Record summary:
A member of the RNA family "Mammalian CPEB3 ribozyme" from Crocodylus porosus, 72 nucleotides long. Lineage of the source: Eukaryota > Tetrapoda > Archelosauria > Crocodylidae > Crocodylus. Pairs were carried over by alignment from the consensus structure, which is taken from published work.

RNA sequence: ACAGCUUUGAGGCCAUAGCAGAAGUGUUCAUGGCACAGUCUGUCAGAUUCCAACAAAUCUAUGAAUUCUGCU
Numbered sequence: 001a002c003a004g005c006u007u008u009g010a011g012g013c014c015a016u017a018g019c020a021g022a023a024g025u026g027u028u029c030a031u032g033g034c035a036c037a038g039u040c041u042g043u044c045a046g047a048u049u050c051c052a053a054c055a056a057a058u059c060u061a062u063g064a065a066u067u068c069u070g071c072u
Stems, first nucleotide, its partner, number of pairs: 011040003017072007024036003045060005